About this RNA: The family of this 116-nucleotide sequence from Dissulfuribacter thermophilus is "TPP riboswitch aptamer (THI element)". Rfam describes the family as follows. Vitamin B(1) in its active form thiamin pyrophosphate (TPP) is an essential coenzyme that is synthesised by coupling of pyrimidine and thiazole moieties in bacteria.

Nucleotides: 116
Base pairs, nucleotide, nucleotide: 007103009101010100011066012065013064014063017028018027019026020025035060036059037058038057039056040055041054042053072097073096074095075094078091079090080089081088
Number, partner (000 for none) and nucleotide at each position: 001000a002000u003000g004000g005000c006000g007103c008000c009101c010100u011066a012065g013064g014063g015000g016000a017028g018027u019026g020025u021000u022000a023000c024000g025020a026019c027018a028017c029000u030000g031000a032000g033000a034000g035060c036059c037058c038057u039056g040055g041054c042053c043000c044000c045000u046000u047000a048000c049000a050000u051000g052000a053042g054041g055040c056039u057038a058037g059036g060035g061000g062000a063014c064013c065012c066011u067000u068000u069000g070000a071000a072097c073096c074095u075094g076000a077000u078091c079090c080089g081088g082000g083000u084000a085000a086000u087000g088081c089080c090079g091078g092000c093000g094075u095074a096073g097072g098000g099000a100010a101009g102000u103007g104000g105000c106000g107000c108000g109000a110000c111000u112000c113000a114000c115000c116000g

The source organism's lineage runs through Bacteria, Thermodesulfobacteriota, Dissulfuribacteria, Dissulfuribacteraceae and Dissulfuribacter.